[Rfam]
RNA sequence: GCACGCAUCGCGGGAGAGCUCCUCCGGGAGCACCGAAGGAGCAAGCCUCCCCGCCAAUCUCUCAGGUCCACGUACCGCGAUGCACUG
Number, nucleotide and partner (000 for none) at each position: 001g000002c000003a000004c000005g000006c082007a081008u080009c079010g078011c077012g076013g075014g000015a000016g000017a000018g000019c030020u029021c028022c027023u000024c000025c000026g000027g022028g021029a020030g019031c000032a067033c066034c065035g063036a062037a000038g000039g061040a060041g059042c000043a000044a000045g054046c053047c000048u000049c000050c000051c000052c000053g046054c045055c000056a000057a000058u000059c041060u040061c039062u036063c035064a000065g034066g033067u032068c000069c000070a000071c000072g000073u000074a000075c013076c012077g011078c010079g009080a008081u007082g006083c000084a000085c000086u000087g000